This 120-nucleotide RNA sequence from Macellibacteroides fermentans belongs to the Rfam family "Group II catalytic intron D1-D4-2". The organism belongs to Macellibacteroides, within Bacteria. From the family's description: Group II introns are found in rRNA, tRNA and mRNA of organelles in fungi, plants and protists, and also in mRNA in bacteria. The literature on the family includes a 2001 paper in Trends Genet by Bonen and Vogel, "The ins and outs of group II introns". The base pairs follow the family's consensus structure.

[Rfam]
RNA sequence: GAGGGCAGGCCCCUCGUAACCGUCUUACAGGAGAUGGUUGCAAACCAGUAUAUGCUGCUUUUUCCCCAUGGUUAAGGUAGUGAACAAUAUACGAAAAAGGCAAUAUCUAAAUUGCCAGGU
Numbered sequence: 001g002a003g004g005g006c007a008g009g010c011c012c013c014u015c016g017u018a019a020c021c022g023u024c025u026u027a028c029a030g031g032a033g034a035u036g037g038u039u040g041c042a043a044a045c046c047a048g049u050a051u052a053u054g055c056u057g058c059u060u061u062u063u064c065c066c067c068a069u070g071g072u073u074a075a076g077g078u079a080g081u082g083a084a085c086a087a088u089a090u091a092c093g094a095a096a097a098a099g100g101c102a103a104u105a106u107c108u109a110a111a112u113u114g115c116c117a118g119g120u
Stems, first nucleotide, its partner, number of pairs: 001015005016041006023034004046119001048092006054081002057078003061074001064071001099116006